Rfam assigns this 110-nucleotide RNA sequence from Hansschlegelia beijingensis to the family "TPP riboswitch aptamer (THI element)". NCBI's taxonomy places the organism under Bacteria, Pseudomonadati, Alphaproteobacteria, Hyphomicrobiales, Hansschlegelia.
RNA sequence: GCUCGUUCCGAGGGGCGUCCCGCUGCGAUGCGGGGCUGAGAUGGCCAGAGGCCGAUCCCUUUGAACCUGAUCCGGGUCAUGCCGGCGAAGGGACGGGAACCGACGGCCGA
Numbered sequence: 001g002c003u004c005g006u007u008c009c010g011a012g013g014g015g016c017g018u019c020c021c022g023c024u025g026c027g028a029u030g031c032g033g034g035g036c037u038g039a040g041a042u043g044g045c046c047a048g049a050g051g052c053c054g055a056u057c058c059c060u061u062u063g064a065a066c067c068u069g070a071u072c073c074g075g076g077u078c079a080u081g082c083c084g085g086c087g088a089a090g091g092g093a094c095g096g097g098a099a100c101c102g103a104c105g106g107c108c109g110a
Stems, first nucleotide, its partner, number of pairs: 006098005011060004016054001017036007043053004066091003072085004